The family of this 107-nucleotide RNA from Sporosarcina sp. JAI121 is "SAM riboswitch aptamer (S box leader)".
RNA sequence: UUCUUAUCAAGAGAAGCUGAGGGAAUUGGCCCUGUGAAGCUUCAGCAACCUCUGACCUGGUCGGGAAGGUGCUACCUCCAACAAGAUUAUUUCUUGAGAGAUAAGAG
Numbered sequence: 001u002u003c004u005u006a007u008c009a010a011g012a013g014a015a016g017c018u019g020a021g022g023g024a025a026u027u028g029g030c031c032c033u034g035u036g037a038a039g040c041u042u043c044a045g046c047a048a049c050c051u052c053u054g055a056c057c058u059g060g061u062c063g064g065g066a067a068g069g070u071g072c073u074a075c076c077u078c079c080a081a082c083a084a085g086a087u088u089a090u091u092u093c094u095u096g097a098g099a100g101a102u103a104a105g106a107g
Stems, first nucleotide, its partner, number of pairs: 001107008013043005021032003026081004044073004049069002051065004077099001082096005

A search with the family's covariance model found it, with a score of 92 bits. The family's consensus secondary structure is taken from published work.